[Rfam]
RNA sequence: UGGCGCCCAGCGGUGAGCGUGGAUACCGGGGAAUUCGAGAGGGAAGAGGCAUCUAAUUGUUCUGCCAAAGGAAAAAAAAAGUGAAAGUCAGUUUGACAAAGAUCGCUGCAGGAGCCUGCUGUGCCGCUCUUAAAGGUACAGUAGCGCCUAACUAUGGGACAAGAAUUAAGUAAGCAUAAAGUUUUUGUUAAGCAAUUAAAAAAAGGCUUUAAAGACACGGGGAGUAAAGGUUAAGAGUAAUGAUCUUUUUAAGUUUUUUGACCUUAUUAAGGACACCUGUCCGU
Numbered sequence: 001u002g003g004c005g006c007c008c009a010g011c012g013g014u015g016a017g018c019g020u021g022g023a024u025a026c027c028g029g030g031g032a033a034u035u036c037g038a039g040a041g042g043g044a045a046g047a048g049g050c051a052u053c054u055a056a057u058u059g060u061u062c063u064g065c066c067a068a069a070g071g072a073a074a075a076a077a078a079a080a081g082u083g084a085a086a087g088u089c090a091g092u093u094u095g096a097c098a099a100a101g102a103u104c105g106c107u108g109c110a111g112g113a114g115c116c117u118g119c120u121g122u123g124c125c126g127c128u129c130u131u132a133a134a135g136g137u138a139c140a141g142u143a144g145c146g147c148c149u150a151a152c153u154a155u156g157g158g159a160c161a162a163g164a165a166u167u168a169a170g171u172a173a174g175c176a177u178a179a180a181g182u183u184u185u186u187g188u189u190a191a192g193c194a195a196u197u198a199a200a201a202a203a204a205g206g207c208u209u210u211a212a213a214g215a216c217a218c219g220g221g222g223a224g225u226a227a228a229g230g231u232u233a234a235g236a237g238u239a240a241u242g243a244u245c246u247u248u249u250u251a252a253g254u255u256u257u258u259u260g261a262c263c264u265u266a267u268u269a270a271g272g273a274c275a276c277c278u279g280u281c282c283g284u
Stems, first nucleotide, its partner, number of pairs: 006031003012026001036048001088136002092133002102128001104126001107123005142162001144160001147158004167211003170207002218260008228246006269284001271282004
Overview: Rfam assigns this 284-nucleotide sequence from Sciurus vulgaris to the family "Mason-Pfizer monkey virus packaging signal". Rfam classes the family as a cis-regulatory element. A reference for the family is Mustafa et al. (2004), "Mutational analysis of the predicted secondary RNA structure of the Mason-Pfizer monkey virus packaging signal", Virus Res. This family represents a group of sequences that are related to the Mason-Pfizer monkey virus (MPMV) packaging signal. The packaging signal is located in the 5' UTR and is required for specific RNA encapsidation. The family's consensus secondary structure was predicted with PFOLD. NCBI's taxonomy places the organism under Eukaryota, Bilateria, Chordata, Euteleostomi, Sciurus.